[Rfam]
RNA sequence: UGGAGGAAGCCGCUAGCAAAAUUGCGAGCUGAUGAACAAAAACAUCAUAUUAGGCGUAGGCUGAAGACGAGUUAGCACAAGAUAACGAAGUCACGUGAUCUAACGGCCACCGUAAAUGAUGCAGUUGUGCAAUGAAAGUUAAUGUU
Numbered sequence: 001u002g003g004a005g006g007a008a009g010c011c012g013c014u015a016g017c018a019a020a021a022u023u024g025c026g027a028g029c030u031g032a033u034g035a036a037c038a039a040a041a042a043c044a045u046c047a048u049a050u051u052a053g054g055c056g057u058a059g060g061c062u063g064a065a066g067a068c069g070a071g072u073u074a075g076c077a078c079a080a081g082a083u084a085a086c087g088a089a090g091u092c093a094c095g096u097g098a099u100c101u102a103a104c105g106g107c108c109a110c111c112g113u114a115a116a117u118g119a120u121g122c123a124g125u126u127g128u129g130c131a132a133u134g135a136a137a138g139u140u141a142a143u144g145u146u
Base pairs, nucleotide, nucleotide: 009146011144012143016139017138021133022132023131024130025129026128027126028125029124030123031122043121044120045119046118047117048116054113055112056111059108060107061106062105063104066092067091068090071086072085073084074083
Rfam assigns this 146-nucleotide RNA from Catenovulum agarivorans to the family "Group II catalytic intron D1-D4-3". NCBI's taxonomy places the organism under Bacteria, Pseudomonadota, Gammaproteobacteria, Alteromonadales, Catenovulum agarivorans. Group II introns are found in rRNA, tRNA and mRNA of organelles in fungi, plants and protists, and also in mRNA in bacteria. A search with the family's covariance model found it, with a score of 116 bits.